RNA sequence: GACGACGGUUUCGGUCAUACAACCAUCAUUUAUACUUUUAGCGACGCUAUAUGUUGUCCGUCGACUAAAAGUAUAGACGACGGUUGUAUGACCGAAACGUCGC
Numbered sequence: 001g002a003c004g005a006c007g008g009u010u011u012c013g014g015u016c017a018u019a020c021a022a023c024c025a026u027c028a029u030u031u032a033u034a035c036u037u038u039u040a041g042c043g044a045c046g047c048u049a050u051a052u053g054u055u056g057u058c059c060g061u062c063g064a065c066u067a068a069a070a071g072u073a074u075a076g077a078c079g080a081c082g083g084u085u086g087u088a089u090g091a092c093c094g095a096a097a098c099g100u101c102g103c
Stems, first nucleotide, its partner, number of pairs: 003102004008098017026080002029077013042063005